[Rfam]
RNA sequence: UUCUUAUCGGAUGAAGACGGUCACGUGUCAUAUUCUGAUUGGUCAAUGACAACAACAAUGUAUUUCAUCUUUCAUGGAUUCGACAUUCAAUCAGAACAUGAUAAAUGAUAGUCAUCAUCC
Numbered sequence: 001u002u003c004u005u006a007u008c009g010g011a012u013g014a015a016g017a018c019g020g021u022c023a024c025g026u027g028u029c030a031u032a033u034u035c036u037g038a039u040u041g042g043u044c045a046a047u048g049a050c051a052a053c054a055a056c057a058a059u060g061u062a063u064u065u066c067a068u069c070u071u072u073c074a075u076g077g078a079u080u081c082g083a084c085a086u087u088c089a090a091u092c093a094g095a096a097c098a099u100g101a102u103a104a105a106u107g108a109u110a111g112u113c114a115u116c117a118u119c120c
Stems, first nucleotide, its partner, number of pairs: 020109004026103001029100003033096004038091005

Rfam assigns this 120-nucleotide sequence from Glycine max to the family "MIR1520 microRNA precursor family".
It scores 105 bits against the family's covariance model.